[Rfam]
RNA: azaaromatic riboswitch aptamer (yjdF RNA)
RNA sequence: CGCCAGAAGCGUAAAAACACGGUCCGGUCGGUAGUCCGGAUGCACGGAACCCCCGCCCGUCCCGGCCCCGGGAAGCGGCUGUUUCCGUGUCGUAGCCUUCCCCCUCGGGAUGUCCCUCGCUCCUGUAUUCCAA
Numbered sequence: 001c002g003c004c005a006g007a008a009g010c011g012u013a014a015a016a017a018c019a020c021g022g023u024c025c026g027g028u029c030g031g032u033a034g035u036c037c038g039g040a041u042g043c044a045c046g047g048a049a050c051c052c053c054c055g056c057c058c059g060u061c062c063c064g065g066c067c068c069c070g071g072g073a074a075g076c077g078g079c080u081g082u083u084u085c086c087g088u089g090u091c092g093u094a095g096c097c098u099u100c101c102c103c104c105u106c107g108g109g110a111u112g113u114c115c116c117u118c119g120c121u122c123c124u125g126u127a128u129u130c131c132a133a
Stems, first nucleotide, its partner, number of pairs: 004125003008121004022041006042090008099110004